The record is a 78-nucleotide RNA from Novosphingobium sp. AAP1, which matches "Makes More Granules Regulator RNA (mmgR)" in Rfam. For this family Rfam cites "Evidence for a second class of S-adenosylmethionine riboswitches and other regulatory RNA motifs in alpha-proteobacteria" (Corbino et al., Genome Biol, 2005). Lineage of the source: Bacteria > Pseudomonadati > Alphaproteobacteria > Sphingomonadales > Novosphingobium.
[Rfam]
RNA sequence: AAAUCCUGCCUUUCAGGCAUCCUCUCCCAAACUUCCAAAGGCCUGGCUGGCAACAGCCGGGCCCUUUUUUUGCUCUGU
Numbered sequence: 001a002a003a004u005c006c007u008g009c010c011u012u013u014c015a016g017g018c019a020u021c022c023u024c025u026c027c028c029a030a031a032c033u034u035c036c037a038a039a040g041g042c043c044u045g046g047c048u049g050g051c052a053a054c055a056g057c058c059g060g061g062c063c064c065u066u067u068u069u070u071u072g073c074u075c076u077g078u
Stems, first nucleotide, its partner, number of pairs: 008018004040063009
From the family's description: SuhB later renamed mmgR (makes more granules regulator) was a putative non-coding RNA found multiple times in the Agrobacterium tumefaciens genome and related alpha-proteobacteria.